[Rfam]
RNA: Small nucleolar RNA F1/F2/snoR5a
Organism: Leersia perrieri
RNA sequence: CAAUGCCAUUUGGUAUCUGACAUGUGAUCUUCUUUUGUGACAACUUGUCUCGAAAUAUGGCAUAUACCAAAGGGGGAACGGAUCUUGCGACAUUGGUUGCUCCUCUAUGAGCCUCCAAUUACUAUAUAGCCGUUUACAUCU
Numbered sequence: 001c002a003a004u005g006c007c008a009u010u011u012g013g014u015a016u017c018u019g020a021c022a023u024g025u026g027a028u029c030u031u032c033u034u035u036u037g038u039g040a041c042a043a044c045u046u047g048u049c050u051c052g053a054a055a056u057a058u059g060g061c062a063u064a065u066a067c068c069a070a071a072g073g074g075g076g077a078a079c080g081g082a083u084c085u086u087g088c089g090a091c092a093u094u095g096g097u098u099g100c101u102c103c104u105c106u107a108u109g110a111g112c113c114u115c116c117a118a119u120u121a122c123u124a125u126a127u128a129g130c131c132g133u134u135u136a137c138a139u140c141u
Base pairs, nucleotide, nucleotide: 004062005061006060007059008058009057019049020048021047022046024044025043028040029039077134078133079132080131081130092119093118094117095116096115099112100111101110